[Rfam]
A member of the RNA family "Mammalian CPEB3 ribozyme" from Laticauda laticaudata, 79 nucleotides long.

RNA sequence: GGUGUUCUUGCGGGGGCCAUAGAAAGGAGCGUUCACGUCGCGGCCCCUGUCAGGUAUCUGUUUACCUGCGAAUCCUACC
Dot-bracket structure: ............((((((...[..[[[[(((.......)))))))))...((((((......))))))....]]]].].
The source organism's lineage runs through Eukaryota, Lepidosauria, Toxicofera, Laticaudinae and Laticauda. The family's consensus secondary structure is taken from published work. Gene Ontology term of the family: RNA nuclease activity.